[Rfam]
This 109-nucleotide RNA from Cucurbita maxima belongs to the Rfam family "MIR394 microRNA precursor family". Pairs were carried over by alignment from the consensus structure, which was predicted with WAR. Gene Ontology terms of the family: miRNA-mediated post-transcriptional gene silencing and RISC complex. A reference for the family is Jones-Rhoades and Bartel (2004), "Computational identification of plant microRNAs and their targets, including a stress-induced miRNA", Mol Cell. Lineage of the source: Eukaryota > Euphyllophyta > Pentapetalae > Cucurbiteae > Cucurbita. Rfam 15.1 lists 724 matches to the family in 216 species. A search with the family's covariance model found it, with a score of 93 bits.
Nucleotides: 109
Base pairs, nucleotide, nucleotide: 011099014095015094016093017092018091019090023086024085025084026083027082028081029080030079031078032077033076
Number, partner (000 for none) and nucleotide at each position: 001000c002000c003000a004000a005000c006000a007000g008000a009000a010000u011099u012000u013000a014095u015094u016093g017092g018091c019090a020000u021000u022000c023086u024085g025084u026083c027082c028081a029080c030079c031078u032077c033076c034000u035000u036000c037000u038000c039000c040000a041000u042000c043000g044000a045000a046000a047000c048000a049000u050000c051000c052000a053000a054000a055000a056000a057000c058000a059000c060000u061000u062000c063000c064000u065000u066000c067000u068000u069000u070000c071000a072000u073000u074000u075000u076033g077032g078031a079030g080029g081028u082027g083026g084025g085024c086023a087000u088000a089000c090019u091018g092017c093016c094015a095014a096000c097000u098000g099011a100000g101000c102000u103000c104000u105000g106000u107000u108000c109000g